[Rfam]
RNA: Group II catalytic intron D1-D4-3
RNA sequence: UCUACGGUGACGUAGAAUCUGAAUGAAGCCUAAGGCAAAAUCCCGAACUGACGAACAGAAACUGUAUAUGAGGCUGUUUGAAGCGGACGAGUUUGCCAAACAAAACGAAGUCCAAUACUGCCCGAACUCCAAGCAGUAAAUACAGCAGUAACAUGGGACGAAGGUUGCCGUU
Numbered sequence: 001u002c003u004a005c006g007g008u009g010a011c012g013u014a015g016a017a018u019c020u021g022a023a024u025g026a027a028g029c030c031u032a033a034g035g036c037a038a039a040a041u042c043c044c045g046a047a048c049u050g051a052c053g054a055a056c057a058g059a060a061a062c063u064g065u066a067u068a069u070g071a072g073g074c075u076g077u078u079u080g081a082a083g084c085g086g087a088c089g090a091g092u093u094u095g096c097c098a099a100a101c102a103a104a105a106c107g108a109a110g111u112c113c114a115a116u117a118c119u120g121c122c123c124g125a126a127c128u129c130c131a132a133g134c135a136g137u138a139a140a141u142a143c144a145g146c147a148g149u150a151a152c153a154u155g156g157g158a159c160g161a162a163g164g165u166u167g168c169c170g171u172u
Stems, first nucleotide, its partner, number of pairs: 001016006028172001030170001035165002041158005047149004062145006073137003077133004082128002085113004091106004